[Rfam]
Nucleotides: 102
Base pairs, nucleotide, nucleotide: 018088019087020086021085022084023083024082025081029049030048031047032046033045034044059077060076061075062074063073064072
Number, partner (000 for none) and nucleotide at each position: 001000c002000a003000a004000a005000a006000a007000u008000u009000g010000a011000a012000u013000a014000a015000u016000u017000u018088c019087a020086u021085c022084u023083a024082u025081a026000u027000a028000a029049u030048c031047c032046u033045a034044a035000u036000a037000a038000u039000a040000u041000g042000g043000u044034u045033u046032g047031g048030g049029a050000g051000u052000u053000u054000c055000u056000a057000c058000g059077a060076a061075a062074g063073g064072g065000c066000c067000g068000u069000a070000a071000a072064u073063c074062c075061u076060u077059u078000g079000u080000c081025u082024a083023u084022g085021g086020g087019u088018g089000a090000a091000u092000c093000u094000a095000u096000a097000u098000g099000g100000g101000g102000c

Shown here is a 102-nucleotide sequence from Clostridium homopropionicum, a member of the family "Purine riboswitch aptamer".
The organism belongs to Clostridium homopropionicum, within Bacteria.